[Rfam]
The family of this 364-nucleotide RNA from Bradyrhizobium sp. Leo170 is "Alphaproteobacteria transfer-messenger RNA".
The match comes from Rfam's covariance-model search (308 bits).
By type it is a non-coding RNA gene.
The source organism's lineage runs through Bacteria, Pseudomonadota, Alphaproteobacteria, Hyphomicrobiales and Bradyrhizobium.
RNA sequence: GGCCUGUUUUUCCGUUGCUUUACCCCCUAUAUUGGGAGUGCCGGCUUGCCGGCUAUGGAAAUAAAUGACCGUCGAAAUAAACCAUUCGGACCCGGGGGCGGUACCCGGCGCCUCCACCAGAGCCCAUGCGGAACCGAGAGCCGUGGGUUCCGGCGGGGGCGAAAUAGGAUCGACGAGGGCGUAAAGGGCGUGUUUUUUCUCGGUAUGGUUCCGCCGAUAUCGGGCCAAUGCAAUAGUUGCCAACGACAACUAUGCUCCGGUUGCUCAGGCUGCGUAACGCAGUUUGAAAGACCACUUUAAAGCCCUAGCGGGUUAAGCUCCGCUAGGCGGGGUUCGGAGGCACCUGGCAACAGAAGCCUCCACU
Numbered sequence: 001g002g003c004c005u006g007u008u009u010u011u012c013c014g015u016u017g018c019u020u021u022a023c024c025c026c027c028u029a030u031a032u033u034g035g036g037a038g039u040g041c042c043g044g045c046u047u048g049c050c051g052g053c054u055a056u057g058g059a060a061a062u063a064a065a066u067g068a069c070c071g072u073c074g075a076a077a078u079a080a081a082c083c084a085u086u087c088g089g090a091c092c093c094g095g096g097g098g099c100g101g102u103a104c105c106c107g108g109c110g111c112c113u114c115c116a117c118c119a120g121a122g123c124c125c126a127u128g129c130g131g132a133a134c135c136g137a138g139a140g141c142c143g144u145g146g147g148u149u150c151c152g153g154c155g156g157g158g159g160c161g162a163a164a165u166a167g168g169a170u171c172g173a174c175g176a177g178g179g180c181g182u183a184a185a186g187g188g189c190g191u192g193u194u195u196u197u198u199c200u201c202g203g204u205a206u207g208g209u210u211c212c213g214c215c216g217a218u219a220u221c222g223g224g225c226c227a228a229u230g231c232a233a234u235a236g237u238u239g240c241c242a243a244c245g246a247c248a249a250c251u252a253u254g255c256u257c258c259g260g261u262u263g264c265u266c267a268g269g270c271u272g273c274g275u276a277a278c279g280c281a282g283u284u285u286g287a288a289a290g291a292c293c294a295c296u297u298u299a300a301a302g303c304c305c306u307a308g309c310g311g312g313u314u315a316a317g318c319u320c321c322g323c324u325a326g327g328c329g330g331g332g333u334u335c336g337g338a339g340g341c342a343c344c345u346g347g348c349a350a351c352a353g354a355a356g357c358c359u360c361c362a363c364u
Stems, first nucleotide, its partner, number of pairs: 040053005057200005067193001070190004082179002086176003092108005109161007201216004206227003210224003330345004336361006